Shown here is a 376-nucleotide sequence from Beutenbergia cavernae, a member of the family "Bacterial RNase P class A". The family's RNA type in Rfam is ribozyme.
[Rfam]
RNA sequence: UGAGCCGGCCAGGCGGCCGCGUUGCGGGAAACCGCACCGAGGAACGUCCGGGCUCCACAGGGCAGGGUGGUGGGUAACGCCCACCCGGGGUGACCCGCGGGACAGUGCCACAGAGAACAGACCGCCCGCGCGGCCUUCGGGUCGAGCGGGCAAGGGUGAAACGGUGGUGUAAGAGACCACCAGCGUGCCGGGUGACCGGUGCGGCUAGGUAAACCCCACCCGGAGCAAGGCCAGACAGGGAGCGGGCUGCCCGCCCAACGCUCCCGGGUAGGCCGCUGGAGGCGUGCGGUGACGCACGUCGUAGAUGGAUGGUCGCCACCCGGCGCCGGGCAACCGGCACCGGGGACAGAACCCGGCGUAUCGGCCGGCUCAUCCC
Number, nucleotide and partner (000 for none) at each position: 001u372002g371003a370004g369005c368006c367007g366008g365009c364010c363011a361012g317013g316014c315015g314016g313017c312018c311019g000020c039021g038022u000023u036024g035025c034026g033027g032028g000029a000030a000031a000032c027033c026034g025035c024036a023037c000038c021039g020040a000041g000042g000043a000044a359045c358046g357047u000048c356049c355050g354051g353052g352053c225054u224055c223056c222057a000058c000059a000060g252061g251062g250063c249064a000065g221066g220067g219068u218069g217070g084071u083072g082073g081074g080075u000076a000077a000078c000079g000080c074081c073082c072083a071084c070085c099086c097087g096088g095089g094090g000091u000092g000093a000094c089095c088096c087097g086098c000099g085100g216101g215102a000103c000104a000105g214106u213107g210108c209109c208110a000111c000112a000113g000114a000115g000116a000117a000118c000119a000120g000121a000122c155123c154124g151125c150126c149127c148128g147129c146130g000131c144132g143133g142134c141135c140136u000137u000138c000139g000140g135141g134142u133143c132144g131145a000146g129147c128148g127149g126150g125151c124152a000153a000154g123155g122156g000157u000158g000159a000160a000161a000162c000163g181164g180165u179166g178167g177168u176169g000170u000171a000172a000173g000174a000175g000176a168177c167178c166179a165180c164181c163182a000183g205184c203185g202186u201187g200188c199189c198190g197191g196192g000193u000194g000195a000196c191197c190198g189199g188200u187201g186202c185203g184204g000205c183206u000207a000208g109209g108210u107211a000212a000213a106214c105215c101216c100217c069218a068219c067220c066221c065222g056223g055224a054225g053226c000227a000228a000229g274230g273231c272232c271233a000234g000235a000236c000237a000238g265239g264240g263241a262242g261243c260244g256245g255246g254247c253248u000249g063250c062251c061252c060253g247254c246255c245256c244257a000258a000259c000260g243261c242262u241263c240264c239265c238266g000267g000268g000269u000270a000271g232272g231273c230274c229275g000276c000277u000278g000279g000280a000281g300282g299283c298284g297285u296286g295287c294288g293289g000290u000291g000292a000293c288294g287295c286296a285297c284298g283299u282300c281301g000302u000303a000304g000305a000306u000307g000308g000309a000310u000311g018312g017313u016314c015315g014316c013317c012318a000319c000320c000321c000322g000323g000324c000325g000326c000327c000328g000329g000330g000331c000332a000333a000334c000335c000336g000337g000338c000339a000340c000341c000342g000343g000344g000345g000346a000347c000348a000349g000350a000351a000352c052353c051354c050355g049356g048357c046358g045359u044360a000361u011362c000363g010364g009365c008366c007367g006368g005369c004370u003371c002372a001373u000374c000375c000376c000

Source information:
The match comes from Rfam's covariance-model search (277 bits). Lineage of the source: Bacteria > Bacillati > Beutenbergiaceae > Beutenbergia > Beutenbergia cavernae.